[Rfam]
RNA sequence: CCUCCUUUUCUUGGCGGGGACCGGGUGUGUAGUCCCGCUCCCUGUUAUGUACGGAGGCAGAGUGAAAGGGCUCCAGCCCCCUCGGCGUCAUGUCUUCGGUGCCAGUGGCCUCCCGUCUGCCGGUUCUAUCCUCAAGCACCGGGACACCG
Numbered sequence: 001c002c003u004c005c006u007u008u009u010c011u012u013g014g015c016g017g018g019g020a021c022c023g024g025g026u027g028u029g030u031a032g033u034c035c036c037g038c039u040c041c042c043u044g045u046u047a048u049g050u051a052c053g054g055a056g057g058c059a060g061a062g063u064g065a066a067a068g069g070g071c072u073c074c075a076g077c078c079c080c081c082u083c084g085g086c087g088u089c090a091u092g093u094c095u096u097c098g099g100u101g102c103c104a105g106u107g108g109c110c111u112c113c114c115g116u117c118u119g120c121c122g123g124u125u126c127u128a129u130c131c132u133c134a135a136g137c138a139c140c141g142g143g144a145c146a147c148c149g
Stems, first nucleotide, its partner, number of pairs: 001057005015044006022037004083141003087137002102123002105120004